[Rfam]
RNA sequence: GAACCUUCGAUUACCUUAUCCGUUGUAGCCAAAGUUCAACGAAGCGGCAACUUUGGCACUCCGCAGAUAAGGCAAUCGAUUGUUU
Number, nucleotide and partner (000 for none) at each position: 001g085002a084003a083004c000005c000006u000007u079008c078009g077010a076011u075012u074013a000014c072015c071016u070017u069018a068019u067020c066021c000022g000023u000024u000025g059026u058027a000028g057029c056030c055031a054032a053033a052034g051035u050036u000037c000038a000039a000040c000041g000042a000043a000044g000045c000046g000047g000048c000049a000050a035051c034052u033053u032054u031055g030056g029057c028058a026059c025060u000061c000062c000063g000064c000065a000066g020067a019068u018069a017070a016071g015072g014073c000074a012075a011076u010077c009078g008079a007080u000081u000082g000083u003084u002085u001
A member of the RNA family "mir-791 microRNA precursor family" from Caenorhabditis elegans, 85 nucleotides long. The organism belongs to Caenorhabditis, within Eukaryota. The base pairs follow the family's consensus structure, which was predicted with RNAalifold. Rfam links the family to the GO terms miRNA-mediated post-transcriptional gene silencing and RISC complex.